[Rfam]
RNA sequence: ACGUCAGGGAAAGGAUUCUGCUGUCGGUCCCACUCCAGAGUUCGCAAAAUGGGUGGUGGGCACAGAAUCCAGUCUCUGCUUGUG
Numbered sequence: 001a002c003g004u005c006a007g008g009g010a011a012a013g014g015a016u017u018c019u020g021c022u023g024u025c026g027g028u029c030c031c032a033c034u035c036c037a038g039a040g041u042u043c044g045c046a047a048a049a050u051g052g053g054u055g056g057u058g059g060g061c062a063c064a065g066a067a068u069c070c071a072g073u074c075u076c077u078g079c080u081u082g083u084g
Stems, first nucleotide, its partner, number of pairs: 001083003005078005013070008022062004027057001030056006

Shown here is an 84-nucleotide RNA from Equus caballus, a member of the family "mir-541 microRNA precursor family". Rfam 15.1 lists 125 matches to the family in 115 species. For this family Rfam cites "MicroRNA transcriptome in the newborn mouse ovaries determined by massive parallel sequencing" (Ahn et al., Mol Hum Reprod, 2010). Taxonomically the source falls in Equus (Eukaryota, Metazoa, Craniata, Laurasiatheria).